[Rfam]
Shown here is a 172-nucleotide sequence from Brevibacillus sp. WF146, a member of the family "Group II catalytic intron D1-D4-3". Rfam's curators write: Group II introns are found in rRNA, tRNA and mRNA of organelles in fungi, plants and protists, and also in mRNA in bacteria. The base pairs follow the family's consensus structure. NCBI's taxonomy places the organism under Bacteria, Bacillati, Bacilli, Caryophanales, Brevibacillus. Gene Ontology term of the family: Group II intron splicing.
RNA sequence: UCCGCCGCGAGGCGGAAUCUGAAGGAAGCCGGCGGCAAAGUCCCGACCUGAGGUACACGAACCCGAUUUGAGGCUGUUGUACUUGGGCGAGCCUGCCGCACAAGGUGAAGCCCCAUACAGCCAAAGGGUACAACAGUAAAUUGGGCAGGUACAUGGGACGAAGGCUACCGCU
Dot-bracket structure: ((((((....))))))...........(.(((..((...(((((((((((...........((((((.....(((.(((((((.((((..((((........))))...)))).............))))))).)))..)))))))))))...))))))....))..))).)